[Rfam]
RNA sequence: UAUGCUGUAAAGCAUGGAGUGAAGCCCCUCCCGGAGGACAGGGAAGCAAAACGGUAAACCCCGAUACCAACGUACAAGAUCUGGAUACUGAGGCUUGACAGGCCGGAUGAAGUAGCAUAUCCUACUGACAUCCCAAGGUGGGAAACCAACAAGCGCAUAGUUGGUAGAUCCAGUGGGUAUUGAGGGAAGGAAUAUGCU
Numbered sequence: 001u002a003u004g005c006u007g008u009a010a011a012g013c014a015u016g017g018a019g020u021g022a023a024g025c026c027c028c029u030c031c032c033g034g035a036g037g038a039c040a041g042g043g044a045a046g047c048a049a050a051a052c053g054g055u056a057a058a059c060c061c062c063g064a065u066a067c068c069a070a071c072g073u074a075c076a077a078g079a080u081c082u083g084g085a086u087a088c089u090g091a092g093g094c095u096u097g098a099c100a101g102g103c104c105g106g107a108u109g110a111a112g113u114a115g116c117a118u119a120u121c122c123u124a125c126u127g128a129c130a131u132c133c134c135a136a137g138g139u140g141g142g143a144a145a146c147c148a149a150c151a152a153g154c155g156c157a158u159a160g161u162u163g164g165u166a167g168a169u170c171c172a173g174u175g176g177g178u179a180u181u182g183a184g185g186g187a188a189g190g191a192a193u194a195u196g197c198u
Base pairs, nucleotide, nucleotide: 001016002015003014004013005012006011045198046197047196048195055190059185060184062182063181064180067176068175069174081173082172083171084170085169086168093165094164095163097161100158102156103155105133106132107131108130111126112125113124114123